[Rfam]
Nucleotides: 169
Stems, first nucleotide, its partner, number of pairs: 020051008029042001061091005069080004092109006113159007127144007
Number, partner (000 for none) and nucleotide at each position: 001000c002000u003000a004000u005000a006000a007000u008000c009000a010000a011000a012000a013000g014000c015000g016000c017000c018000a019000g020051g021050a022049c023048u024047a025046u026045u027044c028000u029042u030000c031000g032000g033000a034000c035000g036000g037000a038000u039000a040000g041000g042029a043000a044027g045026g046025a047024u048023a049022g050021u051020u052000g053000a054000c055000g056000a057000g058000g059000u060000a061091g062090g063089a064088g065087g066000u067000u068000a069080u070079c071078g072077a073000a074000u075000u076000u077072u078071c079070g080069g081000c082000g083000g084000g085000u086000g087065c088064c089063u090062c091061c092109c093108g094107g095106c096105u097104g098000u099000c100000a101000u102000c103000a104097c105096a106095g107094u108093c109092g110000a111000a112000a113159c114158u115157u116156u117155a118154u119153c120000a121000c122000u123000a124000a125000a126000a127144c128143a129142g130141u131140a132139g133138g134000g135000u136000g137000a138133c139132c140131u141130a142129u143128u144127g145000c146000a147000c148000a149000a150000a151000a152000g153119g154118a155117u156116a157115a158114a159113g160000a161000a162000a163000g164000a165000u166000g167000u168000c169000u

This 169-nucleotide RNA sequence from Oceanobacillus iheyensis belongs to the Rfam family "glmS glucosamine-6-phosphate activated ribozyme aptamer". By type it is a riboswitch. The source organism's lineage runs through Bacteria, Bacillati, Bacillaceae, Oceanobacillus and Oceanobacillus iheyensis. The family's consensus secondary structure is taken from published work.